[Rfam]
Shown here is a 228-nucleotide RNA from Fervidibacillus halotolerans, a member of the family "T-box leader". NCBI's taxonomy places the organism under Bacteria, Bacillota, Bacilli, Bacillaceae, Fervidibacillus. Rfam describes the family as follows. Uncharged tRNA acts as the effector for transcription antitermination of genes in the T-box leader family. The family has 48 seed sequences and 19,395 matches in Rfam 15.1.
Nucleotides: 228
Stems, first nucleotide, its partner, number of pairs: 007100002015095004026084006038074003049071006102146007148159003174185004191225004202221005
Number, partner (000 for none) and nucleotide at each position: 001000g002000g003000a004000a005000a006000a007100g008099c009000g010000a011000u012000g013000a014000g015095a016094a017093a018092g019000a020000g021000g022000a023000g024000u025000a026084c027083a028082u029081u030080c031079g032000g033000u034000c035000g036000u037000u038074g039073u040072c041000u042000u043000c044000a045000g046000a047000g048000a049071g050070u051069u052068u053067g054066u055000g056000g057000u058000u059000g060000g061000u062000g063000g064000a065000a066054a067053c068052a069051a070050a071049c072040g073039g074038c075000a076000a077000c078000c079031c080030g081029g082028a083027u084026g085000g086000a087000a088000u089000g090000g091000a092018c093017u094016u095015u096000c097000g098000a099008g100007c101000c102146a103145u104144a105143a106142a107141c108140a109000g110000a111000a112000c113000a114000g115000a116000a117000c118000a119000c120000g121000g122000c123000a124000a125000c126000u127000a128000g129000u130000g131000u132000u133000c134000c135000u136000a137000g138000u139000a140108u141107g142106u143105u144104u145103a146102u147000g148159c149158g150157u151000u152000a153000c154000c155000u156000u157150a158149c159148g160000u161000u162000a163000c164000a165000a166000g167000g168000a169000g170000a171000g172000a173000g174185g175184c176183c177182a178000u179000u180000u181000u182177u183176g184175g185174c186000a187000a188000u189000u190000u191225a192224g193223g194222g195000u196000g197000g198000u199000a200000c201000c202221g203220c204219g205218g206217a207000u208000u209000u210000u211000c212000a213000a214000c215000c216000a217206u218205u219204c220203g221202u222194c223193c224192c225191u226000g227000a228000c